[Rfam]
RNA sequence: AAUAGCCUUCGGGGACAGGUGUAAUUCCGUACCGGCGGUUAAAGCCCGCGAACCGCAUUUGCGGUUGAUCCGGUGGAAAUCCGGGGCCGACAGUAAUAGUCUGGAUGAGAGAAGGAUAAG
Numbered sequence: 001a002a003u004a005g006c007c008u009u010c011g012g013g014g015a016c017a018g019g020u021g022u023a024a025u026u027c028c029g030u031a032c033c034g035g036c037g038g039u040u041a042a043a044g045c046c047c048g049c050g051a052a053c054c055g056c057a058u059u060u061g062c063g064g065u066u067g068a069u070c071c072g073g074u075g076g077a078a079a080u081c082c083g084g085g086g087c088c089g090a091c092a093g094u095a096a097u098a099g100u101c102u103g104g105a106u107g108a109g110a111g112a113a114g115g116a117u118a119a120g
Base pairs, nucleotide, nucleotide: 003118004117006115007114008113009112010111018028019027031100032099033089034088035049036048037047038046044087045086052065053064054063069085070084071083072082073081091103092102093101